[Rfam]
RNA sequence: AUCUUAUUGGAUGAUGACGACCACGUGUCAUGUUCUGAUUGGUCAAUGAAAACAACAAUGCAUUUCAUUUUUCAUGGAAUUGACAUCCAAUCAGAACAUGACAUGUGACAGUCAACAUAA
Numbered sequence: 001a002u003c004u005u006a007u008u009g010g011a012u013g014a015u016g017a018c019g020a021c022c023a024c025g026u027g028u029c030a031u032g033u034u035c036u037g038a039u040u041g042g043u044c045a046a047u048g049a050a051a052a053c054a055a056c057a058a059u060g061c062a063u064u065u066c067a068u069u070u071u072u073c074a075u076g077g078a079a080u081u082g083a084c085a086u087c088c089a090a091u092c093a094g095a096a097c098a099u100g101a102c103a104u105g106u107g108a109c110a111g112u113c114a115a116c117a118u119a120a
Base pairs, nucleotide, nucleotide: 022107023106025104026103029100030099031098033096034095035094036093038091039090040089041088042087
The record is a 120-nucleotide RNA sequence from Glycine max, which matches "MIR1520 microRNA precursor family" in Rfam.
The family has 18 seed sequences and 1,934 matches in Rfam 15.1.
Lineage of the source: Eukaryota > Viridiplantae > Gunneridae > Phaseoleae > Glycine subgen. Soja.
Its Rfam clan is "MIR1520 microRNA precursor clan".